[Rfam]
RNA sequence: GCGUUCCUCACUGGAGAGAGGCUGGUGACCCGCACGCGGGUGAGCCGGUCCACCGAAGGGGCAAGCGGCAGGUGUCGGCACGAACCCCCGCCAAUCUCUCAGGUAAAGCGGACAGCGAGGGCAUC
Numbered sequence: 001g002c003g004u005u006c007c008u009c010a011c012u013g014g015a016g017a018g019a020g021g022c023u024g025g026u027g028a029c030c031c032g033c034a035c036g037c038g039g040g041u042g043a044g045c046c047g048g049u050c051c052a053c054c055g056a057a058g059g060g061g062c063a064a065g066c067g068g069c070a071g072g073u074g075u076c077g078g079c080a081c082g083a084a085c086c087c088c089c090g091c092c093a094a095u096c097u098c099u100c101a102g103g104u105a106a107a108g109c110g111g112a113c114a115g116c117g118a119g120g121g122c123a124u125c
Stems, first nucleotide, its partner, number of pairs: 006120004011115003020050007052104003055100002059098003065091004
RNA: Glycine riboswitch aptamer